Rfam assigns this 119-nucleotide RNA sequence from Fontibacillus panacisegetis to the family "azaaromatic riboswitch aptamer (yjdF RNA)". The match comes from Rfam's covariance-model search (72 bits). Taxonomically the source falls in Fontibacillus (Bacteria, Bacillota, Caryophanales, Paenibacillaceae).
RNA sequence: GUUGAAGAGUGUAAAAACACAGCUCCGGUUGGUAGUCCGGACAUAUCGUUGACGCUUCUCUACUGUCCGAUGUCAGUAACCUUCCCCCCCUUGGGAUGUCCAUCACUCGCAGUUUAAUC
Numbered sequence: 001g002u003u004g005a006a007g008a009g010u011g012u013a014a015a016a017a018c019a020c021a022g023c024u025c026c027g028g029u030u031g032g033u034a035g036u037c038c039g040g041a042c043a044u045a046u047c048g049u050u051g052a053c054g055c056u057u058c059u060c061u062a063c064u065g066u067c068c069g070a071u072g073u074c075a076g077u078a079a080c081c082u083u084c085c086c087c088c089c090c091u092u093g094g095g096a097u098g099u100c101c102a103u104c105a106c107u108c109g110c111a112g113u114u115u116a117a118u119c
Base pairs, nucleotide, nucleotide: 007108008107009106010105011104022042025040026039027038028037043073044072045071046070047069048068083096084095085094086093